[Rfam]
A member of the RNA family "Glycine riboswitch aptamer" from a Propionibacteriales bacterium, 97 nucleotides long. The family has 44 seed sequences and 9,425 matches in Rfam 15.1. The source organism's lineage runs through Bacteria, Bacillati, Actinomycetota, Actinomycetes and Propionibacteriales. A search with the family's covariance model found it, with a score of 67 bits.

RNA sequence: UGAUGCCGUGCGGGAGAGAUCUCGACGCCGUACGUCGAGACGCCGAAGGGGCAAUCCCUCCCCAGAACCUCUCAGGCCAACGGACCGCGCGGACCAG
Number, nucleotide and partner (000 for none) at each position: 001u000002g000003a000004u000005g000006c092007c091008g090009u089010g088011c087012g086013g085014g000015a000016g000017a000018g000019a000020u040021c039022u038023c037024g036025a035026c034027g033028c000029c000030g000031u000032a000033c027034g026035u025036c024037g023038a022039g021040a020041c000042g077043c076044c075045g073046a072047a000048g000049g071050g070051g069052c000053a000054a000055u064056c000057c000058c000059u000060c000061c000062c000063c000064a055065g000066a000067a000068c000069c051070u050071c049072u046073c045074a000075g044076g043077c042078c000079a000080a000081c000082g000083g000084a000085c013086c012087g011088c010089g009090c008091g007092g006093a000094c000095c000096a000097g000